[Rfam]
RNA sequence: CUUCAGGGAGCCGAGCCACAGCGGCUGGUCGGGGGAACGCUCUUUGCCGUACGUGGCCAGCAGCGCCUGUGCCUC
Numbered sequence: 001c002u003u004c005a006g007g008g009a010g011c012c013g014a015g016c017c018a019c020a021g022c023g024g025c026u027g028g029u030c031g032g033g034g035g036a037a038c039g040c041u042c043u044u045u046g047c048c049g050u051a052c053g054u055g056g057c058c059a060g061c062a063g064c065g066c067c068u069g070u071g072c073c074u075c
Stems, first nucleotide, its partner, number of pairs: 014026004032070001038065002043060002047056003
RNA: ASpks TB sRNA
Organism: Winogradskya consettensis